[Rfam]
RNA sequence: AUCUACAGUCCGUUUUGCAGGUUUGCAUCCCAGCUUGGUGUCCAUUGCUGUGCAAAUCCAUGCAAAACUGACGGUGGUG
Numbered sequence: 001a002u003c004u005a006c007a008g009u010c011c012g013u014u015u016u017g018c019a020g021g022u023u024u025g026c027a028u029c030c031c032a033g034c035u036u037g038g039u040g041u042c043c044a045u046u047g048c049u050g051u052g053c054a055a056a057u058c059c060a061u062g063c064a065a066a067a068c069u070g071a072c073g074g075u076g077g078u079g
Stems, first nucleotide, its partner, number of pairs: 003077004008072003012068008020059002022056007032049003
This 79-nucleotide RNA from Podarcis muralis belongs to the Rfam family "mir-19 microRNA precursor family". The family's consensus secondary structure was predicted with RNAalifold. Lineage of the source: Eukaryota > Eumetazoa > Squamata > Laterata > Podarcis.